Overview:
The record is a 55-nucleotide RNA sequence from Chelatococcus asaccharovorans, which matches "nhaA-I RNA" in Rfam. It scores 52 bits against the family's covariance model. Pairs were carried over by alignment from the consensus structure, which is taken from published work. NCBI's taxonomy places the organism under Bacteria, Pseudomonadati, Pseudomonadota, Alphaproteobacteria, Chelatococcus. By type it is a riboswitch. Rfam's curators write: Acidobacteria, Alphaproteobacteria, Betaproteobacteria and Gammaproteobacteria, Verrucomicrobia, cand. division NC10.

RNA sequence: GGGUGUCGGUUGGGUUGGGCCGCCGGCAGGUUACGAGCUGGUCGGGCCGCCAGCU
Numbered sequence: 001g002g003g004u005g006u007c008g009g010u011u012g013g014g015u016u017g018g019g020c021c022g023c024c025g026g027c028a029g030g031u032u033a034c035g036a037g038c039u040g041g042u043c044g045g046g047c048c049g050c051c052a053g054c055u
Stems, first nucleotide, its partner, number of pairs: 005027006012020001036055007